The family of this 113-nucleotide sequence from Novosphingobium olei is "SAM-I/IV (S-adenosyl methionine) riboswitch aptamer". Taxonomically the source falls in Novosphingobium (Bacteria, Pseudomonadati, Sphingomonadales, Sphingomonadaceae). A search with the family's covariance model found it, with a score of 53 bits. Its family is annotated with S-adenosylmethionine metabolic process and regulation of gene expression in the Gene Ontology. The family is grouped with related families in Rfam's "SAM clan".

RNA sequence: CGCCAGCAUCAAGAGUUGGGGAAGACGCCCCGACGCCAACCUGCCUUCUCCGGGCAAGGUGGCGCCUCCUCGCACGGAGGGAUGUGGCCGGUCCGGCAACCAAGCGGAGCCCA
Numbered sequence: 001c002g003c004c005a006g007c008a009u010c011a012a013g014a015g016u017u018g019g020g021g022a023a024g025a026c027g028c029c030c031c032g033a034c035g036c037c038a039a040c041c042u043g044c045c046u047u048c049u050c051c052g053g054g055c056a057a058g059g060u061g062g063c064g065c066c067u068c069c070u071c072g073c074a075c076g077g078a079g080g081g082a083u084g085u086g087g088c089c090g091g092u093c094c095g096g097c098a099a100c101c102a103a104g105c106g107g108a109g110c111c112c113a
Stems, first nucleotide, its partner, number of pairs: 006085005015034001017033001019031003035063003040059003043055003047109001049107002087097004